[Rfam]
RNA sequence: GGGAGUGGAUGGGGCCCGGUGGCCCUCGCGGUCUUCAAAACCGCAGGCCCGCCGUCGGCGGGCAGUGGGUUCGACUCCCUCCCGCUCCC
Numbered sequence: 001g002g003g004a005g006u007g008g009a010u011g012g013g014g015c016c017c018g019g020u021g022g023c024c025c026u027c028g029c030g031g032u033c034u035u036c037a038a039a040a041c042c043g044c045a046g047g048c049c050c051g052c053c054g055u056c057g058g059c060g061g062g063c064a065g066u067g068g069g070u071u072c073g074a075c076u077c078c079c080u081c082c083c084g085c086u087c088c089c
Stems, first nucleotide, its partner, number of pairs: 001089008011026006028044005047063005067079003

Overview
Shown here is an 89-nucleotide RNA from bacterium HR23, a member of the family "Selenocysteine transfer RNA". The base pairs follow the family's consensus structure, which is taken from published work. The match comes from Rfam's covariance-model search (71 bits).